RNA sequence: ACAAACGGUACAAUGCGCGCCGUCAUCAGGGAGUAGCCGCCCCCGCGCAAGCCGGGGGGACCACGUCAACAGACUUGCCCGUCGCGGGCAUGGCGUGUUCAGCCUUCGGGCCUGGCGAGACUUUUGGCUGCAUGCCCUCCGAUUGUUUCGGGCCGGGGAGGCGUGCGGUCAUCUGUCGUCGACCGGCCCGGAG
Numbered sequence: 001a002c003a004a005a006c007g008g009u010a011c012a013a014u015g016c017g018c019g020c021c022g023u024c025a026u027c028a029g030g031g032a033g034u035a036g037c038c039g040c041c042c043c044c045g046c047g048c049a050a051g052c053c054g055g056g057g058g059g060a061c062c063a064c065g066u067c068a069a070c071a072g073a074c075u076u077g078c079c080c081g082u083c084g085c086g087g088g089c090a091u092g093g094c095g096u097g098u099u100c101a102g103c104c105u106u107c108g109g110g111c112c113u114g115g116c117g118a119g120a121c122u123u124u125u126g127g128c129u130g131c132a133u134g135c136c137c138u139c140c141g142a143u144u145g146u147u148u149c150g151g152g153c154c155g156g157g158g159a160g161g162c163g164u165g166c167g168g169u170c171a172u173c174u175g176u177c178g179u180c181g182a183c184c185g186g187c188c189c190g191g192a193g
Stems, first nucleotide, its partner, number of pairs: 041057003059100002062097007076090005104193007
About this RNA: Shown here is a 193-nucleotide RNA from Azoarcus sp. KH32C, a member of the family "Manganese Mn2+ riboswitch aptamer (yybP-ykoY)". Its family is annotated with manganese ion binding in the Gene Ontology. Rfam's curators write: This RNA was originally discovered in E. coli during a large scale screen and was named SraF. The family was later found to exist upstream of related families of protein genes in many bacteria, including the the yybP and ykoK genes in B. subtilis. The specific functions of these proteins are unknown, but this structured RNA element may be involved in their genetic regulation as a riboswitch. On this family, see Barrick et al., Proc Natl Acad Sci U S A 2004: "New RNA motifs suggest an expanded scope for riboswitches in bacterial genetic control". The match comes from Rfam's covariance-model search (67 bits).